Shown here is a 274-nucleotide sequence, a member of the family "PAGEV RNA". It is one of the family's seed sequences. Rfam classes the family as a small RNA.

[Rfam]
RNA sequence: CUGCGCUUGGAAUCGUGAUGUGAAGCUAAUAACUUCUAUCUUGGGCGUAACUAACUGUAUCGACCAGUAAUCAAGGGGUUCUCGAAUACUGGCGUAACGGAUCAAUUAGGCAAACGACGUAAUACGGCAGGUUAUAAGCAUAGCCACUUAUAGCCCUAGAAAAGCCUAAUGAACCGCUUUUAAGCGGGUUUAUCAGAAAACCUGAUAGAUAUACCUAAUUGAUUGUCAUCGACGGAGAGGGGCGCUUUAUAAGCGUAUCUGAUGGCACGUAGGG
Numbered sequence: 001c002u003g004c005g006c007u008u009g010g011a012a013u014c015g016u017g018a019u020g021u022g023a024a025g026c027u028a029a030u031a032a033c034u035u036c037u038a039u040c041u042u043g044g045g046c047g048u049a050a051c052u053a054a055c056u057g058u059a060u061c062g063a064c065c066a067g068u069a070a071u072c073a074a075g076g077g078g079u080u081c082u083c084g085a086a087u088a089c090u091g092g093c094g095u096a097a098c099g100g101a102u103c104a105a106u107u108a109g110g111c112a113a114a115c116g117a118c119g120u121a122a123u124a125c126g127g128c129a130g131g132u133u134a135u136a137a138g139c140a141u142a143g144c145c146a147c148u149u150a151u152a153g154c155c156c157u158a159g160a161a162a163a164g165c166c167u168a169a170u171g172a173a174c175c176g177c178u179u180u181u182a183a184g185c186g187g188g189u190u191u192a193u194c195a196g197a198a199a200a201c202c203u204g205a206u207a208g209a210u211a212u213a214c215c216u217a218a219u220u221g222a223u224u225g226u227c228a229u230c231g232a233c234g235g236a237g238a239g240g241g242g243c244g245c246u247u248u249a250u251a252a253g254c255g256u257a258u259c260u261g262a263u264g265g266c267a268c269g270u271a272g273g274g
Base pairs, nucleotide, nucleotide: 002049003048004047005046006045007044008043009042010041064092065091066090067089068088080238081237082236083235101223102222103221104220105219106218107217108216109215110214128204129203130202132196224267225266226265227264228263229262242256243255244254245253246252